[Rfam]
RNA sequence: GUCACCGCCGGACGGGCGGGGCCGUGAGGGUUGGGGAACCCGGUGACCGGCCCCCUCCGAGGUGGCUCGGGGUUUAAGGGAGCCCCGGGUCGAUCGUUCCGGCGAAGGAG
Number, nucleotide and partner (000 for none) at each position: 001g000002u000003c000004a000005c000006c104007g103008c102009c101010g100011g099012a098013c059014g058015g057016g056017c000018g054019g053020g052021g051022c050023c049024g048025u000026g000027a000028g041029g040030g039031u038032u037033g000034g000035g000036g000037a032038a031039c030040c029041c028042g000043g000044u000045g000046a000047c000048c024049g023050g022051c021052c020053c019054c018055c000056u016057c015058c014059g013060a000061g095062g094063u093064g091065g090066c089067u000068c000069g086070g085071g084072g083073u082074u000075u000076a000077a000078g000079g000080g000081a000082g073083c072084c071085c070086c069087g000088g000089g066090u065091c064092g000093a063094u062095c061096g000097u000098u012099c011100c010101g009102g008103c007104g006105a000106a000107g000108g000109a000110g000